A member of the RNA family "Actinobacteria sRNA Ms_IGR-5" from Nocardioides jishulii, 183 nucleotides long. A search with the family's covariance model found it, with a score of 97 bits. The family's RNA type in Rfam is small RNA. Taxonomically the source falls in Nocardioides (Bacteria, Bacillati, Actinomycetes, Nocardioidaceae).
RNA sequence: ACACGGAAAGGAGGUGGUCCGAAGAUAUGAAGUCUUUUCGGAUGAGUGAGGUGGCUGCGAGCCAGUAGAGCUCGCGCCUCGCGAGGAGCAGGCUCCUGGCGAAUCCAACGCAGACACCCGACCCACAGGCCCGGUCCCAUCCACCGGUUCGCGUUCCUCGGAACGGCCUGUGGGUCGCUGCGU
Number, nucleotide and partner (000 for none) at each position: 001a000002c000003a000004c000005g000006g000007a000008a000009a000010g000011g000012a000013g000014g058015u057016g056017g055018u054019c000020c000021g000022a000023a000024g000025a000026u000027a000028u000029g000030a000031a000032g000033u000034c000035u000036u000037u000038u000039c000040g000041g000042a000043u000044g000045a000046g000047u000048g000049a000050g000051g000052u000053g000054g018055c017056u016057g015058c014059g000060a000061g100062c099063c098064a097065g096066u000067a000068g095069a094070g093071c092072u000073c000074g089075c088076g000077c000078c000079u000080c000081g000082c000083g000084a000085g000086g000087a000088g075089c074090a000091g000092g071093c070094u069095c068096c065097u064098g063099g062100c061101g000102a000103a000104u000105c000106c000107a000108a000109c000110g000111c000112a000113g000114a000115c000116a000117c000118c000119c177120g176121a175122c174123c173124c172125a171126c170127a169128g168129g167130c166131c165132c000133g000134g000135u000136c000137c000138c000139a000140u000141c000142c000143a000144c000145c000146g000147g000148u000149u000150c000151g000152c000153g000154u000155u000156c000157c000158u000159c000160g000161g000162a000163a000164c000165g131166g130167c129168c128169u127170g126171u125172g124173g123174g122175u121176c120177g119178c000179u000180g000181c000182g000183u000